RNA sequence: GGCCUCCCUCUGCGGAGCGAUUGAUCAUGGGGCCCCCAGAUCGAUCGCCCUUCAGAGGGUGGCC
Numbered sequence: 001g002g003c004c005u006c007c008c009u010c011u012g013c014g015g016a017g018c019g020a021u022u023g024a025u026c027a028u029g030g031g032g033c034c035c036c037c038a039g040a041u042c043g044a045u046c047g048c049c050c051u052u053c054a055g056a057g058g059g060u061g062g063c064c
Stems, first nucleotide, its partner, number of pairs: 001064004006059007014051002017048010029036002
The family of this 64-nucleotide RNA sequence from Myotis lucifugus is "mir-9242 microRNA precursor family". Rfam links the family to the GO terms miRNA-mediated post-transcriptional gene silencing and RISC complex. The family has 2 seed sequences and 940 matches in Rfam 15.1. A search with the family's covariance model found it, with a score of 67 bits.